Small nucleolar RNA Z152/R70/R12/: a 109-nucleotide sequence from Cocos nucifera. On this family, see Barneche et al., J Mol Biol 2001: "Identification of 66 box C/D snoRNAs in Arabidopsis thaliana: extensive gene duplications generated multiple isoforms predicting new ribosomal RNA 2'-O-methylation sites". NCBI's taxonomy places the organism under Eukaryota, Streptophytina, Arecoideae, Cocoseae, Cocos. The family's RNA type in Rfam is C/D-box small nucleolar RNA. The base pairs follow the family's consensus structure, which was predicted with PFOLD.
[Rfam]
RNA sequence: GAAGCGAUGAUGAGUUUAGAAUAGAGGUGUGGGCAGUGGCGAGAUGCAUCAAUCAUCUCGCCGUGAGCCUUUCCCCAUUAUUAAACGACUUCUCCUUCCACUGAGCUCC
Dot-bracket structure: (.(((...................................................................................................))).)